RNA sequence: AUAAAAAAGUGGCUCGCGUAAUGGACGCGAGCCUAUGCUAUCUUUCAUCGGAUGUGAAAGAUACGAUAUGGGAGAGGAGAAACCGGAGGAAGAGCUUAUGGGGAAACGUAAGUCUUCUCCGUAG
Number, nucleotide and partner (000 for none) at each position: 001a000002u000003a000004a000005a000006a000007a000008a000009g000010u000011g033012g032013c031014u030015c029016g028017c027018g026019u025020a000021a000022u000023g000024g000025a019026c018027g017028c016029g015030a014031g013032c012033c011034u000035a000036u000037g069038c000039u000040a000041u000042c060043u059044u058045u057046c056047a055048u000049c000050g000051g000052a000053u000054g000055u047056g046057a045058a044059a043060g042061a000062u000063a000064c000065g000066a000067u000068a000069u037070g000071g000072g000073a000074g000075a000076g000077g000078a000079g000080a000081a000082a000083c000084c121085g120086g119087a118088g000089g117090a116091a115092g114093a000094g113095c112096u111097u110098a109099u000100g000101g000102g000103g000104a000105a000106a000107c000108g000109u098110a097111a096112g095113u094114c092115u091116u090117c089118u087119c086120c085121g084122u000123a000124g000

The family of this 124-nucleotide RNA from Thermoflavimicrobium daqui is "ylbH leader".
The match comes from Rfam's covariance-model search (86 bits).
The family's RNA type in Rfam is cis-regulatory leader.
Pairs were carried over by alignment from the consensus structure.
About the family: This family is a putative regulatory RNA structure that is found upstream of the ylbH gene in B. subtilis and related low GC Gram-positive bacteria.
A reference for the family is Barrick et al. (2004), "New RNA motifs suggest an expanded scope for riboswitches in bacterial genetic control", Proc Natl Acad Sci U S A.
Gene Ontology term of the family: regulation of gene expression.